Shown here is a 168-nucleotide sequence from Ameyamaea chiangmaiensis, a member of the family "FMN riboswitch aptamer (RFN element)". The RFN element is a highly conserved domain that is found frequently in the 5'-untranslated regions of prokaryotic mRNAs that encode for flavin mononucleotide (FMN) biosynthesis and transport proteins. This element is a metabolite-dependent riboswitch that directly binds FMN in the absence of proteins. In Bacillus subtilis, the riboswitch most likely controls gene expression by causing premature transcription termination within the 5' untranslated region of the ribDEAHT operon and precluding access to the ribosome-binding site of ypaA mRNA.The FMN riboswitch structure, reported in present an FMN-bound six-stem junction, adopts a butterfly-like scaffold, stapled together by opposingly directed but nearly identically folded peripheral domains. It scores 101 bits against the family's covariance model.
[Rfam]
RNA sequence: AGACGUUCUCGGGGCGGGGUGAAAUUCCCUACCGGCGGUGUUUGCCGCGUCUGCCAUUUCGGCAGGCGCGUCAUAAGCCCGCGAGCGCCCACCGUUCUGCGGUGGGGUCAGCAGACCUUGGUGUGAUUCCAGGGCCGACGGUCACAGUCCGGAUGGGAGAGAACGAAG
Number, nucleotide and partner (000 for none) at each position: 001a000002g000003a000004c165005g164006u163007u162008c161009u160010c159011g000012g000013g000014g000015c000016g000017g029018g028019g027020u000021g000022a000023a000024a000025u000026u000027c019028c018029c017030u000031a148032c147033c137034g136035g082036c081037g080038g079039u000040g000041u000042u000043u000044g000045c000046c000047g000048c000049g000050u000051c000052u000053g000054c000055c000056a000057u000058u000059u000060c000061g000062g000063c000064a000065g000066g000067c000068g000069c000070g000071u000072c000073a000074u000075a000076a000077g135078c134079c038080c037081g036082c035083g000084a000085g112086c111087g000088c000089c000090c000091a000092c000093c000094g000095u000096u000097c000098u000099g000100c000101g000102g000103u000104g000105g000106g000107g000108u000109c000110a000111g086112c085113a000114g000115a000116c133117c132118u000119u131120g130121g129122u000123g000124u000125g000126a000127u000128u000129c121130c120131a119132g117133g116134g078135c077136c034137g033138a000139c151140g150141g149142u000143c000144a000145c000146a000147g032148u031149c141150c140151g139152g000153a000154u000155g000156g000157g000158a000159g010160a009161g008162a007163a006164c005165g004166a000167a000168g000